[Rfam]
RNA: c-di-GMP-I-GGC riboswitch aptamer
Organism: Pseudoneobacillus rhizosphaerae
RNA sequence: CUAGAAAAGGGCUAACCUAUCGAAAGGUAGGGGCGCAAAGUUACAGGUCUAAUGUAAAUGUUGCUCGUUAACAUUACGAUGAUGGCUGGGCUGCCUAGG
Numbered sequence: 001c002u003a004g005a006a007a008a009g010g011g012c013u014a015a016c017c018u019a020u021c022g023a024a025a026g027g028u029a030g031g032g033g034c035g036c037a038a039a040g041u042u043a044c045a046g047g048u049c050u051a052a053u054g055u056a057a058a059u060g061u062u063g064c065u066c067g068u069u070a071a072c073a074u075u076a077c078g079a080u081g082a083u084g085g086c087u088g089g090g091c092u093g094c095c096u097a098g099g
Stems, first nucleotide, its partner, number of pairs: 001099001003096002011036002016031006034085001039092004044088003047083003